Description
This 77-nucleotide sequence from Prevotella sp. MSX73 belongs to the Rfam family "L13-Bacteroidia ribosomal protein leader". The organism belongs to Prevotella, within Bacteria. The base pairs follow the family's consensus structure, which is taken from published work.

[Rfam]
Nucleotides: 077
Base pairs, nucleotide, nucleotide: 001021002020003019004018005017006016036071037070038069039068040067042065043064044063045062046061047060048059049058050057
Number, partner (000 for none) and nucleotide at each position: 001021a002020g003019g004018g005017a006016u007000u008000g009000a010000c011000u012000u013000a014000g015000a016006g017005u018004c019003c020002c021001u022000u023000c024000u025000g026000c027000g028000c029000a030000g031000u032000c033000g034000u035000g036071u037070u038069a039068a040067u041000a042065g043064u044063g045062a046061u047060a048059c049058u050057u051000u052000u053000g054000g055000c056000c057050g058049a059048g060047u061046a062045u063044c064043a065042u066000g067040g068039u069038u070037a071036g072000u073000g074000a075000a076000u077000c

On this family, see Eckert and Weinberg, BMC Microbiol 2020: "Discovery of 20 novel ribosomal leader candidates in bacteria and archaea".